[Rfam]
RNA sequence: AUUCUUUAUACAUAAGGCACCUCGUUAAUUUAGUUUAUUGGUAUUUAUUAAAUUAUACGAAAGGGCCUUAUUUUUUAAAAGUAUUUUAAUGUAAAAUUACAUAUAAACACAAAGUAUUUUGGCGAGACUCUUGAGGUAACAGGACAAGUUGAAGACUACAGGCUGAAGCUGUCUCCUAAGAAAGCGAGGCAACAAUACGAAGUAUUAUAAAUAAAGAAGCCAGUAA
Numbered sequence: 001a002u003u004c005u006u007u008a009u010a011c012a013u014a015a016g017g018c019a020c021c022u023c024g025u026u027a028a029u030u031u032a033g034u035u036u037a038u039u040g041g042u043a044u045u046u047a048u049u050a051a052a053u054u055a056u057a058c059g060a061a062a063g064g065g066c067c068u069u070a071u072u073u074u075u076u077a078a079a080a081g082u083a084u085u086u087u088a089a090u091g092u093a094a095a096a097u098u099a100c101a102u103a104u105a106a107a108c109a110c111a112a113a114g115u116a117u118u119u120u121g122g123c124g125a126g127a128c129u130c131u132u133g134a135g136g137u138a139a140c141a142g143g144a145c146a147a148g149u150u151g152a153a154g155a156c157u158a159c160a161g162g163c164u165g166a167a168g169c170u171g172u173c174u175c176c177u178a179a180g181a182a183a184g185c186g187a188g189g190c191a192a193c194a195a196u197a198c199g200a201a202g203u204a205u206u207a208u209a210a211a212u213a214a215a216g217a218a219g220c221c222a223g224u225a226a
Base pairs, nucleotide, nucleotide: 005211006210007209008208009207010206021040024039026037027036028035041066042065044063045062046061048060049059050054082204083203084202085201086200087199091100092099093098102111104109114198115197116196117195118194119192120191122190123189129181130180131179132178134177135176136175139172140171142169147164148163149162150161
The family of this 226-nucleotide RNA from Staphylococcus epidermidis is "S. aureus tsr24 small RNA". The family's consensus secondary structure was predicted with RNAfold. A search with the family's covariance model found it, with a score of 90 bits. On this family, see Carroll et al., MBio 2016: "Genome-wide Annotation, Identification, and Global Transcriptomic Analysis of Regulatory or Small RNA Gene Expression in Staphylococcus aureus". The family has 4 seed sequences and 98 matches in Rfam 15.1. Taxonomically the source falls in Staphylococcus epidermidis (Bacteria, Bacillati, Bacillota, Caryophanales).